Shown here is a 148-nucleotide sequence from Gossypium anomalum, a member of the family "MIR8643 microRNA precursor family". The base pairs follow the family's consensus structure, which was predicted with RNAalifold. Taxonomically the source falls in Gossypium (Eukaryota, Magnoliopsida, rosids, Malvoideae).
[Rfam]
RNA sequence: AUUUCUUUUAACAUAUCAGAAAUCGAAUUGGCAGUGAAGAAAGAAGCAAGAAGUCAGAAGCCAUCAUUGCCUAUAACCAAAAUCCAUAAACCCAUACCAUGCUUCUUUCUUCACUGCCAAUUUGACUUCCUAAUAUGUUAAAAGAAAU
Numbered sequence: 001a002u003u004u005c006u007u008u009u010a011a012c013a014u015a016u017c018a019g020a021a022a023u024c025g026a027a028u029u030g031g032c033a034g035u036g037a038a039g040a041a042a043g044a045a046g047c048a049a050g051a052a053g054u055c056a057g058a059a060g061c062c063a064u065c066a067u068u069g070c071c072u073a074u075a076a077c078c079a080a081a082a083u084c085c086a087u088a089a090a091c092c093c094a095u096a097c098c099a100u101g102c103u104u105c106u107u108u109c110u111u112c113a114c115u116g117c118c119a120a121u122u123u124g125a126c127u128u129c130c131u132a133a134u135a136u137g138u139u140a141a142a143a144g145a146a147a148u
Stems, first nucleotide, its partner, number of pairs: 004145013018131001019129003023125008032116014047101002050098001